[Rfam]
RNA: Plastid-ccsA-ndhD-1 3UTR RNA
RNA sequence: AACCGGCGAGAACCAUGUGAAUCAAGUAGUAUAAUGAUUCACGCGGUUCUCGCAA
Numbered sequence: 001a002a003c004c005g006g007c008g009a010g011a012a013c014c015a016u017g018u019g020a021a022u023c024a025a026g027u028a029g030u031a032u033a034a035u036g037a038u039u040c041a042c043g044c045g046g047u048u049c050u051c052g053c054a055a
Base pairs, nucleotide, nucleotide: 006053007052008051009050010049011048012047013046014045016043017042018041019040020039021038022037023036024035